[Rfam]
RNA sequence: UGCCGGCUGUCCAAAUGCCGGGGUUACUGAAGAGGCACACCCUCAUUGCCGAAAGUGCGGUUGGGACACCCCCAUCCAAUCCAAGGCAGACAAAGUCCGAAUCAUCGCCCGGGCGGGCGCUGGUUCAGCCAUUGCGUCGCAAGUCUUGCGGAACU
Numbered sequence: 001u002g003c004c005g006g007c008u009g010u011c012c013a014a015a016u017g018c019c020g021g022g023g024u025u026a027c028u029g030a031a032g033a034g035g036c037a038c039a040c041c042c043u044c045a046u047u048g049c050c051g052a053a054a055g056u057g058c059g060g061u062u063g064g065g066a067c068a069c070c071c072c073c074a075u076c077c078a079a080u081c082c083a084a085g086g087c088a089g090a091c092a093a094a095g096u097c098c099g100a101a102u103c104a105u106c107g108c109c110c111g112g113g114c115g116g117g118c119g120c121u122g123g124u125u126c127a128g129c130c131a132u133u134g135c136g137u138c139g140c141a142a143g144u145c146u147u148g149c150g151g152a153a154c155u
Stems, first nucleotide, its partner, number of pairs: 001023001003021005034050004057137003085098002106119005